[Rfam]
RNA sequence: GCCAGGUGUGGUGGCGCGCGCCUAUAGUCCCAGCUACUCAGGAGGCUGAGGCAGGAAGAUUGAUAAGUCUAGGAGUUCUGGAAUGUAGUGCACUAUGUCAAUUGGGUAUCUUUGCUAAGUUUGGCAUCAAUAUGGUGACCUCUUGGGAGCAGGGGACCACUAGGUUACCUAAGGAGGGGUGAACCGGCCCAGAUUGGAAAUGGAGCAGGUCAAAACUCCCAUGCUAACCAGUAGUGAGAUGGAGCCUGUGAAUGGCCACUGCAUUCCAGCCUGGGCAACAUAGUGAGACCCUUCCUCUA
Numbered sequence: 001g002c003c004a005g006g007u008g009u010g011g012u013g014g015c016g017c018g019c020g021c022c023u024a025u026a027g028u029c030c031c032a033g034c035u036a037c038u039c040a041g042g043a044g045g046c047u048g049a050g051g052c053a054g055g056a057a058g059a060u061u062g063a064u065a066a067g068u069c070u071a072g073g074a075g076u077u078c079u080g081g082a083a084u085g086u087a088g089u090g091c092a093c094u095a096u097g098u099c100a101a102u103u104g105g106g107u108a109u110c111u112u113u114g115c116u117a118a119g120u121u122u123g124g125c126a127u128c129a130a131u132a133u134g135g136u137g138a139c140c141u142c143u144u145g146g147g148a149g150c151a152g153g154g155g156a157c158c159a160c161u162a163g164g165u166u167a168c169c170u171a172a173g174g175a176g177g178g179g180u181g182a183a184c185c186g187g188c189c190c191a192g193a194u195u196g197g198a199a200a201u202g203g204a205g206c207a208g209g210u211c212a213a214a215a216c217u218c219c220c221a222u223g224c225u226a227a228c229c230a231g232u233a234g235u236g237a238g239a240u241g242g243a244g245c246c247u248g249u250g251a252a253u254g255g256c257c258a259c260u261g262c263a264u265u266c267c268a269g270c271c272u273g274g275g276c277a278a279c280a281u282a283g284u285g286a287g288a289c290c291c292u293u294c295c296u297c298u299a
Stems, first nucleotide, its partner, number of pairs: 001046003004023007028043003048297004053292003060286003064282002067276007078269013093255004098250001103248005109242001110238002113236005119229001121227007129166003133162005140155006168174002176219005186211004194203003
Rfam assigns this 299-nucleotide RNA sequence from Pan paniscus to the family "Metazoan signal recognition particle RNA". Gene Ontology terms of the family: SRP-dependent cotranslational protein targeting to membrane, signal sequence recognition and signal recognition particle, endoplasmic reticulum targeting. A search with the family's covariance model found it, with a score of 210 bits. The signal recognition particle (SRP) is a universally conserved ribonucleoprotein. It is annotated as a non-coding RNA gene. For this family Rfam cites "Prediction of signal recognition particle RNA genes" (Regalia et al., Nucleic Acids Res, 2002).